[Rfam]
RNA sequence: CGACUGGCUAAGCAGUGUGGAUACUUCGUAUAAUGUAAUGGUAGCAUACCAGAUUAAAACUCUAGAAUUGUAGGUUCGAGUCCUACUGCGUCUCGUUCUACACGCGCCAUACAGUUAUUUU
Numbered sequence: 001c002g003a004c005u006g007g008c009u010a011a012g013c014a015g016u017g018u019g020g021a022u023a024c025u026u027c028g029u030a031u032a033a034u035g036u037a038a039u040g041g042u043a044g045c046a047u048a049c050c051a052g053a054u055u056a057a058a059a060c061u062c063u064a065g066a067a068u069u070g071u072a073g074g075u076u077c078g079a080g081u082c083c084u085a086c087u088g089c090g091u092c093u094c095g096u097u098c099u100a101c102a103c104g105c106g107c108c109a110u111a112c113a114g115u116u117a118u119u120u121u
Base pairs, nucleotide, nucleotide: 002116003115004114005113006112012105013104017101018100019099020098025080026079027078028077

Vault RNA: a 121-nucleotide RNA from Strongylocentrotus purpuratus. The source organism's lineage runs through Eukaryota, Opisthokonta, Echinoidea, Echinidea and Strongylocentrotus. It is annotated as a non-coding RNA gene. This family of RNAs are found as part of the enigmatic vault ribonucleoprotein complex. The complex consists of a major vault protein (MVP), two minor vault proteins (VPARP and TEP1), and several small untranslated RNA molecules.